The family of this 151-nucleotide RNA sequence from Mesocricetibacter intestinalis is "Molybdenum/Tungsten riboswitch aptamer (Moco RNA motif)". Rfam links the family to the GO terms tungstate binding, regulation of gene expression and molybdenum ion binding. A search with the family's covariance model found it, with a score of 80 bits.

RNA sequence: AUUUCAACUGUGUACCGAGCUUGUCAGCCUAAGUUUUUAUCCGAUGUGAAAAAAUACGGCGGCAAUGCCAGCAAUAAUAUCUAUUGCUCAGGGAUAAUGUGGGAAACGACUUAUCCUCUCGUAUUUAGAAAGGUAUCAAAAUGCACCAAAU
Numbered sequence: 001a002u003u004u005c006a007a008c009u010g011u012g013u014a015c016c017g018a019g020c021u022u023g024u025c026a027g028c029c030u031a032a033g034u035u036u037u038u039a040u041c042c043g044a045u046g047u048g049a050a051a052a053a054a055u056a057c058g059g060c061g062g063c064a065a066u067g068c069c070a071g072c073a074a075u076a077a078u079a080u081c082u083a084u085u086g087c088u089c090a091g092g093g094a095u096a097a098u099g100u101g102g103g104a105a106a107c108g109a110c111u112u113a114u115c116c117u118c119u120c121g122u123a124u125u126u127a128g129a130a131a132g133g134u135a136u137c138a139a140a141a142u143g144c145a146c147c148a149a150a151u
Base pairs, nucleotide, nucleotide: 003145006142012136013135014134015133016132019068020067022065025062027060028059029058033055034054035053036052037051038050070088071087072086073085074084075083076082091117092116093115094114095113096112099110100109102107118128119127